RNA sequence: GCUGGGUGAGUAGCGAUCACCUGUAACCCAUGCGGGGGCAAGAUCUGUGUGGAUGGUGCAUCGUGCCCAGUGCCGGUCAGAGAUCGGCUGCCCGUCCCAAGGGGCCAUUAAGUCCGGGUGGGACGACGGAAGUCAUCACAUCCGGGCAUCUGAAGACGCGGGCACUGGCCAAGGCUGGGAACAGAGCAGGCAAUACCGCGCGGUGGAACCAGUGAGGGUGGAAAGUGGCUGAGAGAUCGGUAGCCUGGGCAAUAACAGCGACAUGCCAAACACAAGGAUC
Numbered sequence: 001g002c003u004g005g006g007u008g009a010g011u012a013g014c015g016a017u018c019a020c021c022u023g024u025a026a027c028c029c030a031u032g033c034g035g036g037g038g039c040a041a042g043a044u045c046u047g048u049g050u051g052g053a054u055g056g057u058g059c060a061u062c063g064u065g066c067c068c069a070g071u072g073c074c075g076g077u078c079a080g081a082g083a084u085c086g087g088c089u090g091c092c093c094g095u096c097c098c099a100a101g102g103g104g105c106c107a108u109u110a111a112g113u114c115c116g117g118g119u120g121g122g123a124c125g126a127c128g129g130a131a132g133u134c135a136u137c138a139c140a141u142c143c144g145g146g147c148a149u150c151u152g153a154a155g156a157c158g159c160g161g162g163c164a165c166u167g168g169c170c171a172a173g174g175c176u177g178g179g180a181a182c183a184g185a186g187c188a189g190g191c192a193a194u195a196c197c198g199c200g201c202g203g204u205g206g207a208a209c210c211a212g213u214g215a216g217g218g219u220g221g222a223a224a225g226u227g228g229c230u231g232a233g234a235g236a237u238c239g240g241u242a243g244c245c246u247g248g249g250c251a252a253u254a255a256c257a258g259c260g261a262c263a264u265g266c267c268a269a270a271c272a273c274a275a276g277g278a279u280c
Stems, first nucleotide, its partner, number of pairs: 001039003004022006027036003042280005048274004054268003057263002059260001061258001063256001064251007073240003077235001084232008092221002096218002098214002101210002105206005110149001112147009122137002125134003150155001157200005166193001168191003175184003

The record is a 280-nucleotide RNA from Perkinsus marinus, which matches "Plant signal recognition particle RNA" in Rfam. The base pairs follow the family's consensus structure, which is taken from published work.